[Rfam]
RNA: U11 spliceosomal RNA
Organism: Strigamia maritima
RNA sequence: UAAAAGGGUAUUUGCUCUAUAGCACUCCGAGUUCUCCGGGGCUUGGUGCGGAAUCGAAAUCAAGAGAUUCCGGGUACAAAAUAUUUGGCAACGGAGGCAGCCGAGUGUUAUUUGCACGGGCGCCUCU
Numbered sequence: 001u002a003a004a005a006g007g008g009u010a011u012u013u014g015c016u017c018u019a020u021a022g023c024a025c026u027c028c029g030a031g032u033u034c035u036c037c038g039g040g041g042c043u044u045g046g047u048g049c050g051g052a053a054u055c056g057a058a059a060u061c062a063a064g065a066g067a068u069u070c071c072g073g074g075u076a077c078a079a080a081a082u083a084u085u086u087g088g089c090a091a092c093g094g095a096g097g098c099a100g101c102c103g104a105g106u107g108u109u110a111u112u113u114g115c116a117c118g119g120g121c122g123c124c125u126c127u
Stems, first nucleotide, its partner, number of pairs: 008077005013024004025048001027046008049072007095125004100121003106116003